RNA sequence: UUUUUCACCAGGGGGAGGCCUCUUAGGCCUGAGAUGUCGGUGUACCGACAGACCCUUUGAACCUGAUCCGGCUCGUACCGGCGUAGGGAUGGUGCUCUGCCAUAAC
Number, nucleotide and partner (000 for none) at each position: 001u000002u000003u000004u000005u000006c094007a093008c092009c091010a090011g056012g055013g054014g053015g000016a000017g029018g028019c027020c026021u025022c000023u000024u000025a021026g020027g019028c018029c017030u000031g000032a000033g000034a000035u000036g049037u048038c047039g046040g045041u000042g000043u000044a000045c040046c039047g038048a037049c036050a000051g000052a000053c014054c013055c012056u011057u000058u000059g000060a000061a000062c087063c086064u085065g084066a000067u000068c081069c080070g079071g078072c000073u000074c000075g000076u000077a000078c071079c070080g069081g068082c000083g000084u065085a064086g063087g062088g000089a000090u010091g009092g008093u007094g006095c000096u000097c000098u000099g000100c000101c000102a000103u000104a000105a000106c000
TPP riboswitch aptamer (THI element): a 106-nucleotide RNA from Gallaecimonas xiamenensis. The organism belongs to Gallaecimonas xiamenensis, within Bacteria. The base pairs follow the family's consensus structure, which is taken from published work. The match comes from Rfam's covariance-model search (82 bits).